This 85-nucleotide sequence from Homo sapiens belongs to the Rfam family "mir-3200 microRNA precursor family". The organism belongs to Homo, within Eukaryota. Rfam's curators put it in the seed alignment. Pairs were carried over by alignment from the consensus structure, which was predicted with RNAalifold.

RNA sequence: GGUGGUCGAGGGAAUCUGAGAAGGCGCACAAGGUUUGUGUCCAAUACAGUCCACACCUUGCGCUACUCAGGUCUGCUCGUGCCCU
Number, nucleotide and partner (000 for none) at each position: 001g084002g083003u000004g082005g000006u000007c079008g078009a077010g076011g000012g074013a000014a072015u071016c070017u069018g068019a067020g066021a000022a000023g064024g063025c062026g061027c060028a059029c000030a000031a058032g057033g056034u055035u049036u048037g047038u046039g045040u044041c000042c000043a000044a040045u039046a038047c037048a036049g035050u000051c000052c000053a000054c000055a034056c033057c032058u031059u028060g027061c026062g025063c024064u023065a000066c020067u019068c018069a017070g016071g015072u014073c000074u012075g000076c010077u009078c008079g007080u000081g000082c004083c002084c001085u000